[Rfam]
RNA sequence: CGGCGGGCCACAUGCCCCCAACGGCAUGCAGCCUAUCUGUGAGGAUAGGAGUA
Numbered sequence: 001c002g003g004c005g006g007g008c009c010a011c012a013u014g015c016c017c018c019c020a021a022c023g024g025c026a027u028g029c030a031g032c033c034u035a036u037c038u039g040u041g042a043g044g045a046u047a048g049g050a051g052u053a
Stems, first nucleotide, its partner, number of pairs: 011028006033048006

Notes
A member of the RNA family "serC leader" from Hyphomonas chukchiensis, 53 nucleotides long. The source organism's lineage runs through Bacteria, Pseudomonadati, Alphaproteobacteria, Hyphomonadales and Hyphomonas. From the family's description: This family is a putative regulatory RNA structure that is found upstream of the serC-serA operon in some alpha-proteobacteria. The pairing is the family consensus, mapped onto this sequence. For this family Rfam cites "Evidence for a second class of S-adenosylmethionine riboswitches and other regulatory RNA motifs in alpha-proteobacteria" (Corbino et al., Genome Biol, 2005).